[Rfam]
RNA sequence: GACAGAAAAAGGCAAACCUGUUGAAAAGUAGGGACGCAAAGCCGAGGAUCUAAGGCAAGUUUCUAGCUUGCUAUGGUGGCCGGGCUGCCUGG
Numbered sequence: 001g002a003c004a005g006a007a008a009a010a011g012g013c014a015a016a017c018c019u020g021u022u023g024a025a026a027a028g029u030a031g032g033g034a035c036g037c038a039a040a041g042c043c044g045a046g047g048a049u050c051u052a053a054g055g056c057a058a059g060u061u062u063c064u065a066g067c068u069u070g071c072u073a074u075g076g077u078g079g080c081c082g083g084g085c086u087g088c089c090u091g092g
Stems, first nucleotide, its partner, number of pairs: 012037002017032006040086004046081002048077003055071006
c-di-GMP-I riboswitch aptamer: a 92-nucleotide sequence from Neobacillus bataviensis. It scores 74 bits against the family's covariance model. Rfam links the family to the GO term cyclic-di-GMP binding. Lineage of the source: Bacteria > Bacillati > Caryophanales > Neobacillus > Neobacillus bataviensis.